RNA sequence: AAAUGCAAUCAGAGCGUACAUUGCUGUCAUACGGUCCCUCUCGCUUUUGACCACGGAUGUACUGGCAAAGGCGAGGGGUGACUGCGAAAGGCCGGGAAGCCCCGGCCUUUUUUGUU
Dot-bracket structure: .((((.............))))...........((((((..((((..((.(((.........)))))..)))))))))).((.(.((((((((((......))))))))))).)).

Rfam assigns this 116-nucleotide sequence from Sinorhizobium saheli to the family "Alphaproteobacterial sRNA ar35". The base pairs follow the family's consensus structure.